[Rfam]
RNA sequence: GGUAUAUUCCGACGAAAUGAGUUUGUCGGUAAAUUCCGGCGGAUAUAUGUCGUCGGUAUAUUCCGGCGACCGUUGUCGUCGGUAUAUUCCGACGAAAUGAGUUUGUCGGUAAAUUCGACGGAUAUAUGUCCGUCGGUAUAUUCCGACGAAAUGAGUUUGUCGGUAAAUUCCGGCGGAUAUAUGUCGUCGGUAUAUUCC
Numbered sequence: 001g002g003u004a005u006a007u008u009c010c011g012a013c014g015a016a017a018u019g020a021g022u023u024u025g026u027c028g029g030u031a032a033a034u035u036c037c038g039g040c041g042g043a044u045a046u047a048u049g050u051c052g053u054c055g056g057u058a059u060a061u062u063c064c065g066g067c068g069a070c071c072g073u074u075g076u077c078g079u080c081g082g083u084a085u086a087u088u089c090c091g092a093c094g095a096a097a098u099g100a101g102u103u104u105g106u107c108g109g110u111a112a113a114u115u116c117g118a119c120g121g122a123u124a125u126a127u128g129u130c131c132g133u134c135g136g137u138a139u140a141u142u143c144c145g146a147c148g149a150a151a152u153g154a155g156u157u158u159g160u161c162g163g164u165a166a167a168u169u170c171c172g173g174c175g176g177a178u179a180u181a182u183g184u185c186g187u188c189g190g191u192a193u194a195u196u197c198c
Base pairs, nucleotide, nucleotide: 013052014051015050017048018047053190054189055188056187063109064108065107066106067105068104069103071101074097076095077094078093079092080091116186117185118184119183120182125177127175128174129173130172131148132147133146135144136143153170154169155168156167157166158165159164